[Rfam]
RNA sequence: GCUGAGCUCGGCAGCGCGGGCUUGUAAUCCCAGUGGGAGCUUUAAGGUGAUGGAACAUUAUUUCAACCCUGAUAGUUGGGUUCAGCGUGGGUUUAUGCUGACCCGCCCGCUCCAAGCCAGGAGUUAAUACGUGCAGUUCUUGUGUAAACCGGGGUGUCAUGGUUCCUAGAGUGGAGGGCACAGAGUGAGGCUGGUUUCACAGAGCAGCGACUGCCUCCCGCUCCUGGCAGUGGGAGGAUUACGGGUCGGUGCUAUCUGGAUCGCAUGCCUUGAUAGGCUAGUCUACCUGUACCAUCAUUUUU
Numbered sequence: 001g002c003u004g005a006g007c008u009c010g011g012c013a014g015c016g017c018g019g020g021c022u023u024g025u026a027a028u029c030c031c032a033g034u035g036g037g038a039g040c041u042u043u044a045a046g047g048u049g050a051u052g053g054a055a056c057a058u059u060a061u062u063u064c065a066a067c068c069c070u071g072a073u074a075g076u077u078g079g080g081u082u083c084a085g086c087g088u089g090g091g092u093u094u095a096u097g098c099u100g101a102c103c104c105g106c107c108c109g110c111u112c113c114a115a116g117c118c119a120g121g122a123g124u125u126a127a128u129a130c131g132u133g134c135a136g137u138u139c140u141u142g143u144g145u146a147a148a149c150c151g152g153g154g155u156g157u158c159a160u161g162g163u164u165c166c167u168a169g170a171g172u173g174g175a176g177g178g179c180a181c182a183g184a185g186u187g188a189g190g191c192u193g194g195u196u197u198c199a200c201a202g203a204g205c206a207g208c209g210a211c212u213g214c215c216u217c218c219c220g221c222u223c224c225u226g227g228c229a230g231u232g233g234g235a236g237g238a239u240u241a242c243g244g245g246u247c248g249g250u251g252c253u254a255u256c257u258g259g260a261u262c263g264c265a266u267g268c269c270u271u272g273a274u275a276g277g278c279u280a281g282u283c284u285a286c287c288u289g290u291a292c293c294a295u296c297a298u299u300u301u302u
Stems, first nucleotide, its partner, number of pairs: 001040003004023007028037003044301010055290003059285002062281002065279001068277004073272003079262007088254003092251001098249008107237002111234004116228009127164001130161004136155005142149002166171001173218005185208002191202003
Plant signal recognition particle RNA: a 302-nucleotide RNA sequence from Salix dunnii.
By type it is a non-coding RNA gene.
The organism belongs to Salix, within Eukaryota.